[Rfam]
RNA: Glycine riboswitch aptamer
RNA sequence: CUCUGGAGAGAGCUCAUUUAGAGCCGCCAAAGGAGAAACUUUAGAAUUCUAAAGGUAACUCUCAGGCAAAAAGGACAGAG
Dot-bracket structure: (((((......((((.....)))).(((.(..(((...((((((....))))))....))))..)))........)))))
Numbered sequence: 001c002u003c004u005g006g007a008g009a010g011a012g013c014u015c016a017u018u019u020a021g022a023g024c025c026g027c028c029a030a031a032g033g034a035g036a037a038a039c040u041u042u043a044g045a046a047u048u049c050u051a052a053a054g055g056u057a058a059c060u061c062u063c064a065g066g067c068a069a070a071a072a073g074g075a076c077a078g079a080g
Stems, first nucleotide, its partner, number of pairs: 001080005012024004026067003030062001033061003039054006